[Rfam]
RNA sequence: AGCCAGUGGGAUUCCUGGCAGAGUGAUUUGGUAUUGUGUCAUAAAAUCACAUUGCCAGGGAUUUCUAACCAGCU
Numbered sequence: 001a002g003c004c005a006g007u008g009g010g011a012u013u014c015c016u017g018g019c020a021g022a023g024u025g026a027u028u029u030g031g032u033a034u035u036g037u038g039u040c041a042u043a044a045a046a047u048c049a050c051a052u053u054g055c056c057a058g059g060g061a062u063u064u065c066u067a068a069c070c071a072g073c074u
Stems, first nucleotide, its partner, number of pairs: 001074002006069001009066002011062011023050007
This 74-nucleotide RNA from Coregonus sp. 'balchen' belongs to the Rfam family "mir-23 microRNA precursor family". Its family is annotated with gene silencing by miRNA and RISC complex in the Gene Ontology. On this family, see Chen et al., Genes Dev 2005: "The developmental miRNA profiles of zebrafish as determined by small RNA cloning". Lineage of the source: Eukaryota > Clupeocephala > Protacanthopterygii > Coregoninae > Coregonus.